mir-9195 microRNA precursor family: an 87-nucleotide sequence from Myotis lucifugus. Taxonomically the source falls in Myotis (Eukaryota, Teleostomi, Tetrapoda, Amniota). The base pairs follow the family's consensus structure, which was predicted with RNAalifold. A search with the family's covariance model found it, with a score of 91 bits.
Nucleotides: 087
Stems, first nucleotide, its partner, number of pairs: 004084003012074006020067004025062002028059006037050002040047002
Number, partner (000 for none) and nucleotide at each position: 001000a002000g003000a004084g005083g006082c007000c008000c009000u010000c011000c012074g013073c014072g015071g016070c017069c018000g019000g020067g021066g022065u023064g024000a025062a026061a027000c028059g029058c030057u031056u032055g033054c034000c035000u036000u037050g038049u039000c040047g041046c042000c043000g044000c045000g046041g047040c048000a049038a050037c051000a052000a053000a054033g055032c056031a057030a058029g059028u060000a061026u062025u063000c064023c065022g066021c067020c068000a069017g070016g071015c072014c073013g074012c075000u076000c077000a078000u079000g080000c081000g082006g083005c084004c085000u086000g087000c